RNA: Eukaryotic large subunit ribosomal RNA, nucleotides 375 to 663
RNA sequence: GGCUCGUGCAUAAGUCAAGGGCUCAUAGGAAAGUUGUCCUGGCAAAUGAAGGUGAAGGCAGGCACUGCUUGUAGGCCAAGGUGGAAUCUGGAGGCCUUUCUGUUGGUGGAGGGCACACCACUGCCCAUCUCACCUGUGGCGCCUAGGAGGUGGAGCAAGAGUGCACGUGUUAGUACCUGAAAGAUGAUGAACUAUGCUAGGGGAGGUUGAAGCCAGUCCUGACGUGCAAAUCGGUCGUCCGACCUGGGUAUAGGGGCGAAAGACUAAUCGAACCAUCUAGUAGCUGGUU
Numbered sequence: 001g002g003c004u005c006g007u008g009c010a011u012a013a014g015u016c017a018a019g020g021g022c023u024c025a026u027a028g029g030a031a032a033g034u035u036g037u038c039c040u041g042g043c044a045a046a047u048g049a050a051g052g053u054g055a056a057g058g059c060a061g062g063c064a065c066u067g068c069u070u071g072u073a074g075g076c077c078a079a080g081g082u083g084g085a086a087u088c089u090g091g092a093g094g095c096c097u098u099u100c101u102g103u104u105g106g107u108g109g110a111g112g113g114c115a116c117a118c119c120a121c122u123g124c125c126c127a128u129c130u131c132a133c134c135u136g137u138g139g140c141g142c143c144u145a146g147g148a149g150g151u152g153g154a155g156c157a158a159g160a161g162u163g164c165a166c167g168u169g170u171u172a173g174u175a176c177c178u179g180a181a182a183g184a185u186g187a188u189g190a191a192c193u194a195u196g197c198u199a200g201g202g203g204a205g206g207u208u209g210a211a212g213c214c215a216g217u218c219c220u221g222a223c224g225u226g227c228a229a230a231u232c233g234g235u236c237g238u239c240c241g242a243c244c245u246g247g248g249u250a251u252a253g254g255g256g257c258g259a260a261a262g263a264c265u266a267a268u269c270g271a272a273c274c275a276u277c278u279a280g281u282a283g284c285u286g287g288u289u
Base pairs, nucleotide, nucleotide: 005167006166007165008164009163010162011161014043015042016041018040019039020038021037022036046053047052080122081121082120083119084118088113089112123156124155125153126152127151128149130147176287177286179284183277184276185275186274188272192253193252194251195250196249197248198247200245201244202243212238213237216235218234219233221232222231255265256264